Shown here is a 105-nucleotide RNA sequence from Prunus persica, a member of the family "MIR6274 microRNA precursor family".
[Rfam]
RNA sequence: GGAUAAUACUGUUUUGCUAUUUCCGGUCAACAACACAAUGAUAUGUGGAAUAACGUUUUCACGUAUCAUUGUGUUAUUGGCCAAAAAUAACAAAAAGUGUUAUUC
Numbered sequence: 001g002g003a004u005a006a007u008a009c010u011g012u013u014u015u016g017c018u019a020u021u022u023c024c025g026g027u028c029a030a031c032a033a034c035a036c037a038a039u040g041a042u043a044u045g046u047g048g049a050a051u052a053a054c055g056u057u058u059u060c061a062c063g064u065a066u067c068a069u070u071g072u073g074u075u076a077u078u079g080g081c082c083a084a085a086a087a088u089a090a091c092a093a094a095a096a097g098u099g100u101u102a103u104u105c
Base pairs, nucleotide, nucleotide: 002104003103004102005101012095013094014093015092016091018089019088020087022085025082026081027080028079029078030077032075033074034073035072036071037070038069039068040067041066042065043064044063045062046061047060048059049058050057

Background: NCBI's taxonomy places the organism under Eukaryota, Tracheophyta, Spermatophyta, Mesangiospermae, Prunus. It scores 82 bits against the family's covariance model. The family has 2 seed sequences and 342 matches in Rfam 15.1.